[Rfam]
Nucleotides: 087
Stems, first nucleotide, its partner, number of pairs: 012037002017032006040081004047077002049073003056067002059064001
Number, partner (000 for none) and nucleotide at each position: 001000c002000u003000a004000a005000a006000a007000u008000u009000u010000a011000g012037g013036c014000a015000a016000a017032c018031c019030a020029u021028a022027u023000g024000a025000a026000a027022a028021u029020a030019u031018g032017g033000g034000a035000c036013g037012c038000a039000a040081a041080a042079c043078u044000a045000c046000a047077g048076g049073g050072g051071c052000u053000a054000c055000g056067c057066g058000c059064c060000a061000u062000u063000c064059g065000c066057c067056g068000c069000a070000u071051g072050c073049c074000a075000g076048c077047c078043a079042g080041u081040u082000g083000c084000c085000g086000u087000u

About this RNA:
The record is an 87-nucleotide sequence from Paenibacillus validus, which matches "c-di-GMP-I riboswitch aptamer" in Rfam. The match comes from Rfam's covariance-model search (73 bits). The source organism's lineage runs through Bacteria, Bacilli, Caryophanales, Paenibacillaceae and Paenibacillus.